[Rfam]
RNA sequence: GUGUUCCUUCAGGGCAGGGUGGAAUUCCCGACCGGCGGUAAUGGCAAACGUCAGAGUCCGCGAGCCGAAAGGCAGAUCCGGUGCGAAUCCGGAACCGACAGUAAAGUCUGGAUGGAAGAAGGAUGAU
Numbered sequence: 001g002u003g004u005u006c007c008u009u010c011a012g013g014g015c016a017g018g019g020u021g022g023a024a025u026u027c028c029c030g031a032c033c034g035g036c037g038g039u040a041a042u043g044g045c046a047a048a049c050g051u052c053a054g055a056g057u058c059c060g061c062g063a064g065c066c067g068a069a070a071g072g073c074a075g076a077u078c079c080g081g082u083g084c085g086a087a088u089c090c091g092g093a094a095c096c097g098a099c100a101g102u103a104a105a106g107u108c109u110g111g112a113u114g115g116a117a118g119a120a121g122g123a124u125g126a127u
Base pairs, nucleotide, nucleotide: 005123006122007121008120009119010118017029018028019027031107032106033097034096035061036060037059038058056095057094064073065072066071077093078092079091080090081089099110100109101108
Dot-bracket structure: ....((((((......(((.......))).[[((((((.................[[))))..(((....)))...(((((.......)))))]])).(((....]]))).......))))))....